[Rfam]
RNA sequence: GAUCGCAAUGACGACUCCACAAAAUUCAAGCUCAACAGACCGGAAUGCAGGUUUCUCUCUCUAGAGAAUUUUGCGUGUCGAUAUCCCGCUGAGCCGAGCGAUU
Numbered sequence: 001g002a003u004c005g006c007a008a009u010g011a012c013g014a015c016u017c018c019a020c021a022a023a024a025u026u027c028a029a030g031c032u033c034a035a036c037a038g039a040c041c042g043g044a045a046u047g048c049a050g051g052u053u054u055c056u057c058u059c060u061c062u063a064g065a066g067a068a069u070u071u072u073g074c075g076u077g078u079c080g081a082u083a084u085c086c087c088g089c090u091g092a093g094c095c096g097a098g099c100g101a102u103u
Stems, first nucleotide, its partner, number of pairs: 001103006
A member of the RNA family "Small nucleolar RNA Z107/R87" from Actinidia chinensis, 103 nucleotides long. On this family, see Chen et al., Nucleic Acids Res 2003: "The high diversity of snoRNAs in plants: identification and comparative study of 120 snoRNA genes from Oryza sativa".